[Rfam]
RNA: Small nucleolar RNA SNORD72
RNA sequence: GUCUUGUCAAUGAUGUUUUCAAACAAAUGUCUGAACAUAUGACUGGCUGUGAUUCCUUUAUAUUUGCUGAGACAAGAC
Number, nucleotide and partner (000 for none) at each position: 001g000002u077003c076004u075005u074006g073007u072008c071009a000010a000011u000012g000013a000014u000015g000016u000017u000018u000019u000020c000021a000022a000023a000024c000025a000026a000027a000028u000029g000030u000031c000032u000033g000034a000035a000036c000037a000038u000039a000040u000041g000042a000043c000044u000045g000046g000047c000048u000049g000050u000051g000052a000053u000054u000055c000056c000057u000058u000059u000060a000061u000062a000063u000064u000065u000066g000067c000068u000069g000070a000071g008072a007073c006074a005075a004076g003077a002078c000